About this RNA
The family of this 240-nucleotide RNA from Erythrobacteraceae bacterium CFH 75059 is "permuted transfer-messenger RNA".

RNA sequence: GGCGAUAAAGUGUGGUGUGCAAUAGACACAGCGGACCCGGGGGCAGUACCCGGCGGCUCCACCACCUGCGCCGCUCCGGCCGGACGUCGAGGACGUGCCGGCCGCGCGGUUCAGCUGACGGGGCCGAACCAGGAUCGACGUGUGUUGAAAGACAUCGCUUUCGCCCGGGCUGAGUAACCCGUCAAAGGCUCGACACACACAAGUGCCAACGACAACGAAGCACUUGCUCUCGCCGCGUAA
Number, nucleotide and partner (000 for none) at each position: 001g165002g164003c163004g162005a161006u000007a000008a000009a000010g000011u000012g000013u000014g000015g155016u154017g153018u152019g000020c000021a000022a000023u000024a000025g000026a000027c144028a143029c142030a000031g141032c140033g139034g000035a000036c000037c053038c052039g051040g050041g049042g000043g000044c000045a000046g000047u000048a000049c041050c040051c039052g038053g037054c126055g125056g124057c123058u122059c121060c120061a000062c000063c000064a000065c000066c000067u000068g000069c000070g000071c000072c000073g000074c000075u000076c000077c000078g000079g000080c000081c000082g000083g000084a000085c000086g000087u000088c000089g000090a000091g000092g000093a000094c000095g000096u000097g000098c000099c000100g000101g000102c000103c000104g000105c000106g000107c000108g000109g000110u000111u000112c000113a000114g000115c000116u000117g000118a000119c000120g060121g059122g058123g057124c056125c055126g054127a000128a000129c000130c000131a000132g000133g000134a000135u000136c000137g000138a000139c033140g032141u031142g029143u028144g027145u000146u000147g000148a000149a000150a000151g000152a018153c017154a016155u015156c000157g000158c000159u000160u000161u005162c004163g003164c002165c001166c181167g180168g179169g178170c000171u000172g000173a000174g000175u000176a000177a000178c169179c168180c167181g166182u000183c000184a000185a000186a000187g000188g000189c000190u000191c000192g000193a000194c000195a000196c000197a000198c000199a000200c000201a000202a000203g000204u000205g000206c000207c000208a000209a000210c000211g000212a000213c000214a000215a000216c000217g000218a000219a000220g000221c000222a000223c000224u000225u000226g000227c000228u000229c000230u000231c000232g000233c000234c000235g000236c000237g000238u000239a000240a000

Rfam's curators write: Bacterial tmRNA, also known as 10Sa RNA or SsrA, is named for its dual tRNA and mRNA-like properties. Its role is to liberate the mRNA from a stalled ribosome. The family's RNA type in Rfam is non-coding RNA gene. The organism belongs to Erythrobacteraceae, within Bacteria.